[Rfam]
RNA sequence: GCAUAAAUGAUGUGACUAUAUCAGUAUGAUAAACCAUGAUACUGUAAACGCUUUCUGAUGUG
Numbered sequence: 001g002c003a004u005a006a007a008u009g010a011u012g013u014g015a016c017u018a019u020a021u022c023a024g025u026a027u028g029a030u031a032a033a034c035c036a037u038g039a040u041a042c043u044g045u046a047a048a049c050g051c052u053u054u055c056u057g058a059u060g061u062g
Stems, first nucleotide, its partner, number of pairs: 002062004012054001014052001016050001022044006